[Rfam]
RNA sequence: AUCCAUGGCCGAAGAAUCGUCACUGUUCGAAGCUUGCAAACUAGAAUGUGAGAAUCAUUCAAGUAUUAUGCUUUGGGUAGAAAGUCUCCGACCAGUCCGUAUGCGGAAACGCAAUGAGAUUUAAAAAUUUUAAUUAUUAAAUCAACUCAUUAAGUUAACGCGAGGUGCUCUUUUGCGCUUUGUGUUUGCUUUCUGUCCUGGGGCAACUCGCUCCAGUGAAUUUCGGUAGGGAAAUCAGUUAGAUUUCAAACGAUAGUUAUGACGAUUGUCCAACGCCCUUGGCAUUGGAUAACCCAAUGGAGCUUACUACUCGGCUCAUGGA
Number, nucleotide and partner (000 for none) at each position: 001a000002u322003c321004c320005a319006u318007g000008g315009c314010c313011g312012a311013a000014g000015a267016a266017u265018c264019g263020u262021c000022a000023c000024u000025g000026u000027u076028c075029g074030a073031a072032g071033c070034u000035u000036g000037c000038a000039a000040a000041c000042u000043a000044g060045a059046a058047u057048g056049u000050g000051a000052g000053a000054a000055u000056c048057a047058u046059u045060c044061a000062a000063g000064u000065a000066u000067u000068a000069u000070g033071c032072u031073u030074u029075g028076g027077g000078u000079a000080g000081a000082a305083a304084g303085u000086c302087u301088c300089c299090g000091a000092c000093c000094a000095g000096u000097c000098c000099g000100u000101a000102u113103g112104c111105g110106g000107a000108a000109a000110c105111g104112c103113a102114a000115u000116g000117a000118g000119a000120u000121u000122u000123a000124a000125a000126a000127a000128u000129u000130u000131u000132a000133a000134u000135u000136a000137u000138u000139a000140a000141a000142u000143c000144a000145a000146c000147u000148c000149a000150u000151u000152a000153a000154g000155u000156u000157a000158a000159c000160g000161c000162g000163a000164g000165g000166u000167g000168c000169u000170c000171u000172u000173u000174u000175g000176c000177g000178c000179u000180u000181u000182g000183u000184g235185u000186u000187u000188g000189c000190u232191u231192u230193c229194u228195g000196u000197c000198c226199u225200g224201g223202g000203g000204c000205a000206a000207c000208u219209c218210g217211c216212u000213c000214c000215a000216g211217u210218g209219a208220a000221u000222u000223u201224c200225g199226g198227u000228a194229g193230g192231g191232a190233a000234a000235u184236c000237a000238g000239u000240u000241a000242g000243a000244u000245u000246u000247c000248a000249a000250a000251c000252g000253a000254u000255a000256g000257u000258u000259a000260u000261g000262a020263c019264g018265a017266u016267u015268g000269u289270c288271c287272a286273a285274c000275g000276c000277c000278c000279u000280u000281g000282g000283c000284a000285u273286u272287g271288g270289a269290u000291a000292a000293c000294c000295c000296a000297a000298u000299g089300g088301a087302g086303c084304u083305u082306a000307c000308u000309a000310c000311u012312c011313g010314g009315c008316u000317c000318a006319u005320g004321g003322a002
The record is a 322-nucleotide RNA from Zygotorulaspora mrakii, which matches "RNase MRP" in Rfam.
About the family: RNase MRP is an enzymatically active ribonucleoprotein with two distinct roles in eukaryotes. In mitochondria it plays a direct role in the initiation of mitochondrial DNA replication. In the nucleus it is involved in precursor rRNA processing, where it cleaves the internal transcribed spacer 1 between 18S and 5.8S rRNAs. Despite distinct functions, RNase MRP has been shown to be evolutionarily related to RNase P. Like eukaryotic RNase P, RNase MRP is not catalytically active without associated protein subunits.
The source organism's lineage runs through Eukaryota, Opisthokonta, Fungi, Saccharomycetes and Zygotorulaspora.
A search with the family's covariance model found it, with a score of 83 bits.
Rfam classes the family as a ribozyme.
For this family Rfam cites "Secondary structure of RNase MRP RNA as predicted by phylogenetic comparison" (Schmitt et al., FASEB J, 1993).
Pairs were carried over by alignment from the consensus structure, which is taken from published work.